[Rfam]
RNA: IS605-orfB-I RNA
RNA sequence: GUCCUAUACAGAUGCAUCAACGCAAGACAGUGGAACAUCUCCCUGUAGGAUGAAAUUCAUCAGAAGCUCUGACAACAAAUCUUAUUGUGUGGCUACGGUCGAAAUGGGAUGAGUCAGAGUGGAAUAGGUUAACCGUAGAACUUUUGGUUGAAAAACCAUAAAACAAAUCUAAGAAUAUGACUUCUGCAUUUUCACUAUUUUUAGUUACGGUUCU
Number, nucleotide and partner (000 for none) at each position: 001g051002u050003c049004c048005u047006a046007u045008a044009c000010a040011g039012a038013u037014g036015c000016a000017u034018c033019a000020a031021c030022g028023c000024a000025a000026g000027a000028c022029a000030g021031u020032g000033g018034a017035a000036c014037a013038u012039c011040u010041c000042c000043c000044u008045g007046u006047a005048g004049g003050a002051u001052g000053a000054a000055a000056u000057u000058c000059a000060u000061c000062a000063g000064a000065a000066g120067c119068u118069c117070u116071g115072a114073c113074a000075a000076c000077a000078a000079a000080u109081c108082u107083u106084a105085u104086u103087g000088u000089g000090u000091g100092g099093c000094u000095a000096c000097g000098g000099u092100c091101g000102a000103a086104a085105u084106g083107g082108g081109a080110u000111g000112a000113g073114u072115c071116a070117g069118a068119g067120u066121g000122g000123a000124a000125u000126a143127g142128g141129u140130u139131a000132a211133c210134c209135g208136u207137a206138g164139a130140a129141c128142u127143u126144u000145u158146g157147g156148u155149u154150g000151a000152a000153a000154a149155a148156c147157c146158a145159u000160a000161a000162a000163a000164c138165a000166a000167a000168u000169c204170u203171a202172a201173g200174a199175a198176u197177a196178u194179g193180a000181c000182u000183u000184c000185u000186g000187c000188a000189u000190u000191u000192u000193c179194a178195c000196u177197a176198u175199u174200u173201u172202u171203a170204g169205u000206u137207a136208c135209g134210g133211u132212u000213c000214u000